[Rfam]
RNA sequence: CUGCGUGACGAAGCGCGCGCUAAAGUGGACAAUAAAGGCUAAGUAACGAAUGAGUCGCCUGACGCCGGCUACGCCGGCGUUUUUUA
Numbered sequence: 001c002u003g004c005g006u007g008a009c010g011a012a013g014c015g016c017g018c019g020c021u022a023a024a025g026u027g028g029a030c031a032a033u034a035a036a037g038g039c040u041a042a043g044u045a046a047c048g049a050a051u052g053a054g055u056c057g058c059c060u061g062a063c064g065c066c067g068g069c070u071a072c073g074c075c076g077g078c079g080u081u082u083u084u085u086a
Stems, first nucleotide, its partner, number of pairs: 015059001016057002019039003061081008
A member of the RNA family "sroD RNA" from Klebsiella pneumoniae, 86 nucleotides long. Lineage of the source: Bacteria > Gammaproteobacteria > Enterobacterales > Klebsiella > Klebsiella pneumoniae subsp. pneumoniae. Rfam classes the family as a small RNA. It is one of the family's seed sequences. From the family's description: This family consists of a number of bacterial sroD RNA genes of around 90 bases in length. sroD is found in several Enterobacterial species but its function is unknown. Pairs were carried over by alignment from the consensus structure, which was predicted with PFOLD.